[Rfam]
RNA sequence: AGGAGGAACAACCACUUGGGGGCCGCCAGCUCUGGAGCCCUGGAUUCAGCUCCUGCAGUAACUACGGAGCUCUCUGUGCGCAGGGCCUGGAGGCUCUGGGGGCGG
Numbered sequence: 001a002g003g004a005g006g007a008a009c010a011a012c013c014a015c016u017u018g019g020g021g022g023c024c025g026c027c028a029g030c031u032c033u034g035g036a037g038c039c040c041u042g043g044a045u046u047c048a049g050c051u052c053c054u055g056c057a058g059u060a061a062c063u064a065c066g067g068a069g070c071u072c073u074c075u076g077u078g079c080g081c082a083g084g085g086c087c088u089g090g091a092g093g094c095u096c097u098g099g100g101g102g103c104g105g
Stems, first nucleotide, its partner, number of pairs: 002097004009089002012085002015078001017076005028071007036063001040058003
Rfam assigns this 105-nucleotide RNA from Vulpes vulpes to the family "mir-8834 microRNA precursor family". Rfam 15.1 lists 13,926 matches to the family in 17 species. Pairs were carried over by alignment from the consensus structure, which was predicted with RNAalifold. The organism belongs to Vulpes, within Eukaryota.